Rfam assigns this 100-nucleotide RNA sequence from Acetanaerobacterium elongatum to the family "Bacterial small signal recognition particle RNA". A search with the family's covariance model found it, with a score of 68 bits. The source organism's lineage runs through Bacteria, Bacillota, Clostridia, Oscillospiraceae and Acetanaerobacterium. The base pairs follow the family's consensus structure, which is taken from published work. About the family: The signal recognition particle (SRP) is a universally conserved ribonucleoprotein involved in the co-translational targeting of proteins to membranes.
[Rfam]
RNA sequence: GUGCGGGUCCUGUGCGACAAAGCGCCGUGAACCAUGUCAGGCGGGGAACCGAGCAGCAUUAAGCGGAUGUCUUUGUGUGCCGCAGGGUUGCCUGCAUGCC
Numbered sequence: 001g002u003g004c005g006g007g008u009c010c011u012g013u014g015c016g017a018c019a020a021a022g023c024g025c026c027g028u029g030a031a032c033c034a035u036g037u038c039a040g041g042c043g044g045g046g047a048a049c050c051g052a053g054c055a056g057c058a059u060u061a062a063g064c065g066g067a068u069g070u071c072u073u074u075g076u077g078u079g080c081c082g083c084a085g086g087g088u089u090g091c092c093u094g095c096a097u098g099c100c
Stems, first nucleotide, its partner, number of pairs: 004094005009086006015077001017076006025066004034059004042051003